[Rfam]
This 314-nucleotide sequence from Candidatus Methanoperedens nitratireducens belongs to the Rfam family "Archaeal signal recognition particle RNA". Clan: SRP clan.

RNA sequence: CGGCGGGCUAGCCCGGGUAACUCGGCGUUAUCUGUAACCCGAAACCGUCGAUAGCGGGGGGCGAAGCCAAGGGAAGAAGUUUUAACUGUUGCCCAGCCCACAGGUUCUACUGUGAAACCCCGUCCUAUGGGGAUGGCGUUGGUACAGAGGCUUUUCUGAAGUAAGGUUUCUGUACCUUAAUCGCGGAUAACGAUCUAGGCCCGGAAGGGAGCAAAUCAGCCGUGAACAACUAUCGCUCAUGGGGUCGCGGGGUGGAGGCGAGUCUGUGGUCAACUGGACAGCGGAAGGAGCUACGACCCGAGGUGUGCCCGCUA
Dot-bracket structure: .(((((((..(((((((((((.....)))))))....((((.............))))))))...(((..(((..(.((((((..((((((.((((.((((((((((..((.....((((((((((((((((((((.(..((((((((((((((.(....).))))))))))))))....((((((.....(((.....(((....))).....)))..)))))).)..))))).))))))))...)))))))..))..))))))))))....)))).)))))).))).))).)..)))..)))..))))))).
Notes: NCBI's taxonomy places the organism under Archaea, Methanobacteriati, Methanomicrobia, Methanosarcinales, Candidatus Methanoperedens. Its family is annotated with SRP-dependent cotranslational protein targeting to membrane, signal sequence recognition and signal recognition particle, plasma membrane targeting in the Gene Ontology.